[Rfam]
RNA sequence: CAAUUCAAAGGCAAACUAUGGGUGACUGUAGGACGCAAAGCCACGGGCCCCUCUUUCUUAUUGGCGGGCAGCCGGGUUGCAGUCA
Numbered sequence: 001c002a003a004u005u006c007a008a009a010g011g012c013a014a015a016c017u018a019u020g021g022g023u024g025a026c027u028g029u030a031g032g033a034c035g036c037a038a039a040g041c042c043a044c045g046g047g048c049c050c051c052u053c054u055u056u057c058u059u060a061u062u063g064g065c066g067g068g069c070a071g072c073c074g075g076g077u078u079g080c081a082g083u084c085a
Stems, first nucleotide, its partner, number of pairs: 004081001011036002016031006034071001039078004044074003047069003
This 85-nucleotide sequence from Zoogloea oleivorans belongs to the Rfam family "c-di-GMP-I-GGC riboswitch aptamer". The match comes from Rfam's covariance-model search (62 bits). The family is grouped with related families in Rfam's "c-di-GMP_I riboswitch clan". Gene Ontology term of the family: cyclic-di-GMP binding. The family's consensus secondary structure is taken from published work.